Notes: A member of the RNA family "FMN riboswitch aptamer (RFN element)" from Paracoccus sigandri, 146 nucleotides long. The family's consensus secondary structure is taken from published work. The match comes from Rfam's covariance-model search (112 bits).
[Rfam]
RNA sequence: CGCCGUUCUCAGGGCGGGGUGGAAAUCCCCACCGGCGGUAAGCAGCCCGGCUGCAAGCCCGCGAGCGCCUUCGCCACCGCGAAGGGUCAGCAGAUCUGGUGCGAUUCCAGGGCCGACGGUGACAGUCCGGAUGGAAGAGAACGUGU
Numbered sequence: 001c002g003c004c005g006u007u008c009u010c011a012g013g014g015c016g017g018g019g020u021g022g023a024a025a026u027c028c029c030c031a032c033c034g035g036c037g038g039u040a041a042g043c044a045g046c047c048c049g050g051c052u053g054c055a056a057g058c059c060c061g062c063g064a065g066c067g068c069c070u071u072c073g074c075c076a077c078c079g080c081g082a083a084g085g086g087u088c089a090g091c092a093g094a095u096c097u098g099g100u101g102c103g104a105u106u107c108c109a110g111g112g113c114c115g116a117c118g119g120u121g122a123c124a125g126u127c128c129g130g131a132u133g134g135a136a137g138a139g140a141a142c143g144u145g146u
Stems, first nucleotide, its partner, number of pairs: 004143007017029003031126002033115002035062004057113002065091002095111005117129003

About this RNA:
NCBI's taxonomy places the organism under Bacteria, Pseudomonadota, Alphaproteobacteria, Paracoccaceae, Paracoccus.